Shown here is a 60-nucleotide sequence from Sphingomonas sp. KC8, a member of the family "terC RNA".
[Rfam]
RNA sequence: CGCGCGGGCCGGGCCCCUCUGGCGAUCGUGUUGAUGCGGUCGCGAUGUCGGACCGCAUCG
Numbered sequence: 001c002g003c004g005c006g007g008g009c010c011g012g013g014c015c016c017c018u019c020u021g022g023c024g025a026u027c028g029u030g031u032u033g034a035u036g037c038g039g040u041c042g043c044g045a046u047g048u049c050g051g052a053c054c055g056c057a058u059c060g
Stems, first nucleotide, its partner, number of pairs: 006054002009051004022043008